The family of this 115-nucleotide sequence from Trifolium medium is "MIR2593 microRNA precursor family". Gene Ontology terms of the family: RISC complex and miRNA-mediated post-transcriptional gene silencing.
RNA sequence: UUAUAAGCAAAUUUUCAUUUUUUAGAUUCAUUGGAUAACUAAUGUAUCUGGUUUAUAAUUAAGGCCAAAUACAUUAGUUAUCCAAUGAAUCUAAAAGGUGAAAAUUUGCUUUUAA
Numbered sequence: 001u002u003a004u005a006a007g008c009a010a011a012u013u014u015u016c017a018u019u020u021u022u023u024a025g026a027u028u029c030a031u032u033g034g035a036u037a038a039c040u041a042a043u044g045u046a047u048c049u050g051g052u053u054u055a056u057a058a059u060u061a062a063g064g065c066c067a068a069a070u071a072c073a074u075u076a077g078u079u080a081u082c083c084a085a086u087g088a089a090u091c092u093a094a095a096a097g098g099u100g101a102a103a104a105u106u107u108g109c110u111u112u113u114a115a
Stems, first nucleotide, its partner, number of pairs: 002114002005111003009107005015101011027089018049067004